This 196-nucleotide sequence from Lachnoclostridium sp. An14 belongs to the Rfam family "Group II catalytic intron D1-D4-3".
The base pairs follow the family's consensus structure.
From the family's description: Group II introns are found in rRNA, tRNA and mRNA of organelles in fungi, plants and protists, and also in mRNA in bacteria.
NCBI's taxonomy places the organism under Bacteria, Clostridia, Lachnospirales, Lachnospiraceae, Lachnoclostridium.
The match comes from Rfam's covariance-model search (142 bits).
[Rfam]
RNA sequence: UCCAUCGUGAGGUGGAAUCUGAAAGAAACCGGAUGCGGGGAACCAACGAACCCGUGGGCAAACCUCUGGUCUGACGAACAGAAAUCGCAUAUAAGGCUGUACAUGAGGGUAAAUUUGCACGACAAAAUAAAGCCCGAUAGCUACACGGAAUCAUGUGCAGUAAAUACGGCAGAUGGAUGGAGGGAAAGAAACGUGU
Numbered sequence: 001u002c003c004a005u006c007g008u009g010a011g012g013u014g015g016a017a018u019c020u021g022a023a024a025g026a027a028a029c030c031g032g033a034u035g036c037g038g039g040g041a042a043c044c045a046a047c048g049a050a051c052c053c054g055u056g057g058g059c060a061a062a063c064c065u066c067u068g069g070u071c072u073g074a075c076g077a078a079c080a081g082a083a084a085u086c087g088c089a090u091a092u093a094a095g096g097c098u099g100u101a102c103a104u105g106a107g108g109g110u111a112a113a114u115u116u117g118c119a120c121g122a123c124a125a126a127a128u129a130a131a132g133c134c135c136g137a138u139a140g141c142u143a144c145a146c147g148g149a150a151u152c153a154u155g156u157g158c159a160g161u162a163a164a165u166a167c168g169g170c171a172g173a174u175g176g177a178u179g180g181a182g183g184g185a186a187a188g189a190a191a192c193g194u195g196u
Stems, first nucleotide, its partner, number of pairs: 001016006050196002053193002059188001063183006069174005085169003089165002096161003100157007107135004113128004